[Rfam]
RNA: Potassium channel RNA editing signal
RNA sequence: CUAGGCUAUGGAGAUAUGUACCCCAAAACCUGGUCAGGCAUGGUGGUGGGGGCUCUCUGCGCCUUGGCUGGGGUGCUCACCAUCGCCAUGCCUGUGCCUGUCAUCGUCAAUAAC
Numbered sequence: 001c002u003a004g005g006c007u008a009u010g011g012a013g014a015u016a017u018g019u020a021c022c023c024c025a026a027a028a029c030c031u032g033g034u035c036a037g038g039c040a041u042g043g044u045g046g047u048g049g050g051g052g053c054u055c056u057c058u059g060c061g062c063c064u065u066g067g068c069u070g071g072g073g074u075g076c077u078c079a080c081c082a083u084c085g086c087c088a089u090g091c092c093u094g095u096g097c098c099u100g101u102c103a104u105c106g107u108c109a110a111u112a113a114c
Base pairs, nucleotide, nucleotide: 002113004111008107009106010105011104013102014101015100016099018097019096020095021094037077038076039075040074049063050062